Nucleotides: 269
Base pairs, nucleotide, nucleotide: 005021006020007019008018009017022216023215024214025213030208031207032206033205034204035203036202038061039060040059041058066147067146068145069144070143084097085096086095087094098137099136100135101134221267222266223265224264232254233253234252235251236250237249238248239247
Number, partner (000 for none) and nucleotide at each position: 001000u002000a003000a004000a005021u006020g007019g008018g009017u010000u011000a012000u013000u014000g015000u016000u017009g018008c019007c020006c021005a022216g023215u024214g025213u026000u027000g028000u029000g030208u031207g032206u033205g034204a035203u036202a037000a038061c039060u040059g041058g042000a043000a044000u045000u046000g047000g048000g049000u050000g051000a052000u053000g054000g055000c056000a057000u058041c059040c060039a061038g062000a063000g064000g065000g066147g067146u068145u069144g070143g071000u072000a073000g074000a075000c076000u077000g078000c079000a080000u081000c082000c083000a084097u085096a086095g087094g088000c089000a090000u091000a092000g093000a094087c095086c096085u097084a098137g099136g100135c101134g102000a103000g104000g105000g106000g107000a108000a109000a110000c111000c112000c113000a114000g115000a116000g117000g118000a119000a120000c121000u122000c123000c124000u125000a126000u127000c128000u129000g130000a131000g132000u133000a134101c135100g136099u137098c138000g139000c140000a141000a142000g143070c144069c145068a146067a147066c148000g149000u150000g151000g152000c153000c154000a155000a156000u157000c158000c159000g160000g161000a162000g163000a164000a165000u166000g167000g168000g169000g170000u171000g172000a173000a174000a175000c176000u177000c178000c179000u180000c181000u182000g183000a184000a185000a186000u187000a188000c189000g190000g191000u192000g193000u194000u195000g196000c197000c198000u199000u200000c201000a202036u203035a204034u205033c206032a207031c208030a209000c210000g211000a212000a213025g214024c215023a216022c217000a218000a219000a220000c221267a222266a223265a224264u225000u226000g227000a228000a229000a230000c231000a232254c233253u234252u235251u236250g237249g238248g239247u240000g241000u242000u243000g244000u245000c246000g247239a248238c249237c250236u251235g252234a253233a254232g255000g256000c257000a258000c259000a260000u261000u262000a263000a264224a265223u266222u267221u268000g269000a